[Rfam]
This 307-nucleotide RNA sequence from Liparis tanakae belongs to the Rfam family "Nuclear RNase P". The match comes from Rfam's covariance-model search (220 bits). The organism belongs to Liparis, within Eukaryota. It is annotated as a ribozyme. Rfam links the family to the GO terms tRNA processing, ribonuclease P activity and ribonuclease P complex.
RNA sequence: GUGGGUGGAAGCUCAUUGUAGAGGUCACAUGCAGAGUGCUCGUCACUCCACCAAUCACCUCGGGGAAGGUCUGAGACAAGAGCCAAUAGCUGUCCUUGCAGGGCAUCACCUGAUUGAGGUGAGCGAGUGAACAGAAAUCAAUGGCCAAUGUGAGCGCUUGUCGCAGGAGAAGCUUCGUGGCGCAGUUUCAGCGUCAUGAAGCGGAUGUGGCGCUCACUGGUUUGGAAUAACUCGCGGCUAGCAAAUGAGUGCGAUGUAUGAGGUGGGGCACAGCUCCAGAACCCAAUUCAGACUACUCUCCACCCAC
Numbered sequence: 001g002u003g004g005g006u007g008g009a010a011g012c013u014c015a016u017u018g019u020a021g022a023g024g025u026c027a028c029a030u031g032c033a034g035a036g037u038g039c040u041c042g043u044c045a046c047u048c049c050a051c052c053a054a055u056c057a058c059c060u061c062g063g064g065g066a067a068g069g070u071c072u073g074a075g076a077c078a079a080g081a082g083c084c085a086a087u088a089g090c091u092g093u094c095c096u097u098g099c100a101g102g103g104c105a106u107c108a109c110c111u112g113a114u115u116g117a118g119g120u121g122a123g124c125g126a127g128u129g130a131a132c133a134g135a136a137a138u139c140a141a142u143g144g145c146c147a148a149u150g151u152g153a154g155c156g157c158u159u160g161u162c163g164c165a166g167g168a169g170a171a172g173c174u175u176c177g178u179g180g181c182g183c184a185g186u187u188u189c190a191g192c193g194u195c196a197u198g199a200a201g202c203g204g205a206u207g208u209g210g211c212g213c214u215c216a217c218u219g220g221u222u223u224g225g226a227a228u229a230a231c232u233c234g235c236g237g238c239u240a241g242c243a244a245a246u247g248a249g250u251g252c253g254a255u256g257u258a259u260g261a262g263g264u265g266g267g268g269c270a271c272a273g274c275u276c277c278a279g280a281a282c283c284c285a286a287u288u289c290a291g292a293c294u295a296c297u298c299u300c301c302a303c304c305c306a307c
Stems, first nucleotide, its partner, number of pairs: 001307004007301003012262005021061004034048005071291005081239004091105005106122006123235006144221003264278006